[Rfam]
About this RNA: Shown here is a 135-nucleotide RNA from Folsomia candida, a member of the family "Small Cajal body specific RNA 8". Rfam 15.1 lists 955 matches to the family in 741 species. The source organism's lineage runs through Eukaryota, Panarthropoda, Arthropoda, Proisotominae and Folsomia. It is annotated as a small Cajal body RNA. The base pairs follow the family's consensus structure, which is taken from published work. Rfam describes the family as follows. scaRNAs are a specific class of small nuclear RNAs which localise to the Cajal bodies and guide the modification of RNA polymerase II transcribed spliceosomal RNAs U1, U2, U4, U5 and U12. U92 belong to the H/ACA box class of guide RNAs as it has the predicted hairpin-hinge-hairpin-tail structure, conserved H/ACA-box motifs and is found associated with GAR1.
RNA sequence: UGGGAAAUAUUGAUACACGAUAACUGCAAAAAGUUAAUUAGUUACUCGUCACAAAGUUUCCCUAAAUUAAGUUUGCCUUCUGAUGACCGUAGUAGUUAUAGUACAGCCCUGCGGACAGAUACGGGGCAUAUAUGU
Numbered sequence: 001u002g003g004g005a006a007a008u009a010u011u012g013a014u015a016c017a018c019g020a021u022a023a024c025u026g027c028a029a030a031a032a033g034u035u036a037a038u039u040a041g042u043u044a045c046u047c048g049u050c051a052c053a054a055a056g057u058u059u060c061c062c063u064a065a066a067u068u069a070a071g072u073u074u075g076c077c078u079u080c081u082g083a084u085g086a087c088c089g090u091a092g093u094a095g096u097u098a099u100a101g102u103a104c105a106g107c108c109c110u111g112c113g114g115a116c117a118g119a120u121a122c123g124g125g126g127c128a129u130a131u132a133u134g135u
Stems, first nucleotide, its partner, number of pairs: 002062006017049004026042002029039001074128006087114003092109001095107001